[Rfam]
The family of this 386-nucleotide sequence from Pleurostoma richardsiae is "Nuclear RNase P".
Rfam's curators write: Ribonuclease P (RNase P) is a ubiquitous endoribonuclease, found in archaea, bacteria and eukarya as well as chloroplasts and mitochondria. Its best characterised activity is the generation of mature 5'-ends of tRNAs by cleaving the 5'-leader elements of precursor-tRNAs. Cellular RNase Ps are ribonucleoproteins.
By type it is a ribozyme.
The base pairs follow the family's consensus structure, which is taken from published work.
Rfam 15.1 lists 3,848 matches to the family in 1,862 species.
Rfam links the family to the GO terms ribonuclease P activity, ribonuclease P complex and tRNA processing.
RNA sequence: AUCGCCCUCAACGCUACGUUUCCGUGCCUCGAACGGAGAGACCAGCUGCGCAAGCAGCCUCUCUCGCACCUGUCUGCAUGGGGGAAAUUCGGAGUAUGCUUCAAACACACCUUCUCCCGCUCAACCCCCUCUGGGUUGUGCGGUGUAGGUCAGCCAGUAACGGCCUGGCGUCACAUGACGCCUGCAAGCGAUAUCAGAAAUCUCAGGGCCCCAGCCCGGCAUCCGCGUCGAAAGACGAGGGGCGCCGCGGUCUGGCGGUUCCUAUGGGAAGUCCUUGCGAAGCUUGUUUGUGGAAAAACUGAAGUUCGAUACGUGGCGUUCUGCUCUUCCUCUCGAGCGAUCGAGGGGUGCGUAGGAUAUCUCAAUUCCGAUUAAUCUGGGGCGAU
Numbered sequence: 001a002u003c004g005c006c007c008u009c010a011a012c013g014c015u016a017c018g019u020u021u022c023c024g025u026g027c028c029u030c031g032a033a034c035g036g037a038g039a040g041a042c043c044a045g046c047u048g049c050g051c052a053a054g055c056a057g058c059c060u061c062u063c064u065c066g067c068a069c070c071u072g073u074c075u076g077c078a079u080g081g082g083g084g085a086a087a088u089u090c091g092g093a094g095u096a097u098g099c100u101u102c103a104a105a106c107a108c109a110c111c112u113u114c115u116c117c118c119g120c121u122c123a124a125c126c127c128c129c130u131c132u133g134g135g136u137u138g139u140g141c142g143g144u145g146u147a148g149g150u151c152a153g154c155c156a157g158u159a160a161c162g163g164c165c166u167g168g169c170g171u172c173a174c175a176u177g178a179c180g181c182c183u184g185c186a187a188g189c190g191a192u193a194u195c196a197g198a199a200a201u202c203u204c205a206g207g208g209c210c211c212c213a214g215c216c217c218g219g220c221a222u223c224c225g226c227g228u229c230g231a232a233a234g235a236c237g238a239g240g241g242g243c244g245c246c247g248c249g250g251u252c253u254g255g256c257g258g259u260u261c262c263u264a265u266g267g268g269a270a271g272u273c274c275u276u277g278c279g280a281a282g283c284u285u286g287u288u289u290g291u292g293g294a295a296a297a298a299c300u301g302a303a304g305u306u307c308g309a310u311a312c313g314u315g316g317c318g319u320u321c322u323g324c325u326c327u328u329c330c331u332c333u334c335g336a337g338c339g340a341u342c343g344a345g346g347g348g349u350g351c352g353u354a355g356g357a358u359a360u361c362u363c364a365a366u367u368c369c370g371a372u373u374a375a376u377c378u379g380g381g382g383c384g385a386u
Base pairs, nucleotide, nucleotide: 001386002385003384004383008380009379010378013317014316015315016314017313018312019311022081023080024079025078026077036063037062038061039060040059090370091369092368093367094366099282100281101280102279153164154163155162167182168181169180170179171178172177184278185277186276187275188274190272206263207262208261318358319357320356321355322354323353324352